[Rfam]
RNA sequence: CUUAUACUUUAGGGGUGUCCUAAUAAUUUUAGAGAAAAGAUACAGGACUGAGAUGAUACCCUUUGAACCUGAUGUAGUUUGUGCUACCGGAGGGAAAAGUGACCAAAUACUA
Numbered sequence: 001c002u003u004a005u006a007c008u009u010u011a012g013g014g015g016u017g018u019c020c021u022a023a024u025a026a027u028u029u030u031a032g033a034g035a036a037a038a039g040a041u042a043c044a045g046g047a048c049u050g051a052g053a054u055g056a057u058a059c060c061c062u063u064u065g066a067a068c069c070u071g072a073u074g075u076a077g078u079u080u081g082u083g084c085u086a087c088c089g090g091a092g093g094g095a096a097a098a099g100u101g102a103c104c105a106a107a108u109a110c111u112a
Stems, first nucleotide, its partner, number of pairs: 006100005011062004016056001017048005068093003074087004